The family of this 156-nucleotide RNA from Plenodomus lingam is "Small nucleolar RNA snR80".
Its family is annotated with RNA processing and nucleolus in the Gene Ontology.
The literature on the family includes a 2004 paper in Nucleic Acids Res by Schattner et al., "Genome-wide searching for pseudouridylation guide snoRNAs: analysis of the Saccharomyces cerevisiae genome".
The organism belongs to Plenodomus lingam, within Eukaryota.
It scores 42 bits against the family's covariance model.
RNA sequence: AUCACUUCACCAACACUCUGGCCCUUACUUCCAAGUCUUCGGACUUGGACCGUAGUAUAGGCCUAUUUUGGUGUGAAGAAGAGGAAAACGACCCAUUACUCACCGCGCUGUCUUGCCUUUGGUUUGGCUUUGGUGGUCCUUUUUCGAGGUCGACAU
Numbered sequence: 001a002u003c004a005c006u007u008c009a010c011c012a013a014c015a016c017u018c019u020g021g022c023c024c025u026u027a028c029u030u031c032c033a034a035g036u037c038u039u040c041g042g043a044c045u046u047g048g049a050c051c052g053u054a055g056u057a058u059a060g061g062c063c064u065a066u067u068u069u070g071g072u073g074u075g076a077a078g079a080a081g082a083g084g085a086a087a088a089c090g091a092c093c094c095a096u097u098a099c100u101c102a103c104c105g106c107g108c109u110g111u112c113u114u115g116c117c118u119u120u121g122g123u124u125u126g127g128c129u130u131u132g133g134u135g136g137u138c139c140u141u142u143u144u145c146g147a148g149g150u151c152g153a154c155a156u
Base pairs, nucleotide, nucleotide: 007076008075009074020063021062022061023060026057027056028055029054031048032047033046034045035044036043037042090151091150092149093148103136104135105134106133110129112127113126